[Rfam]
Nucleotides: 053
Stems, first nucleotide, its partner, number of pairs: 011028006033048006
Number, partner (000 for none) and nucleotide at each position: 001000a002000c003000g004000u005000g006000g007000g008000a009000c010000a011028c012027c013026u014025c015024u016023c017000c018000c019000c020000a021000a022000c023016g024015a025014g026013a027012g028011g029000c030000u031000u032000a033048c034047u035046a036045u037044c038043u039000g040000g041000a042000a043038g044037g045036a046035u047034a048033g049000a050000u051000c052000c053000a